[Rfam]
RNA sequence: CCGGGCUGCUUUCUUGGACGUUUCCUCCCUAAACUUGGCGGCACGAUGACGUGCCGCCAUUUUUUUUGUCCCGA
Numbered sequence: 001c002c003g004g005g006c007u008g009c010u011u012u013c014u015u016g017g018a019c020g021u022u023u024c025c026u027c028c029c030u031a032a033a034c035u036u037g038g039c040g041g042c043a044c045g046a047u048g049a050c051g052u053g054c055c056g057c058c059a060u061u062u063u064u065u066u067u068g069u070c071c072c073g074a
Stems, first nucleotide, its partner, number of pairs: 008019001010017002037058008
Makes More Granules Regulator RNA (mmgR): a 74-nucleotide RNA from Rhodovastum atsumiense. It is annotated as a small RNA. The family is grouped with related families in Rfam's "suhB sRNA clan". Taxonomically the source falls in Rhodovastum (Bacteria, Pseudomonadati, Acetobacterales, Acetobacteraceae). It scores 55 bits against the family's covariance model. On this family, see Corbino et al., Genome Biol 2005: "Evidence for a second class of S-adenosylmethionine riboswitches and other regulatory RNA motifs in alpha-proteobacteria". The base pairs follow the family's consensus structure.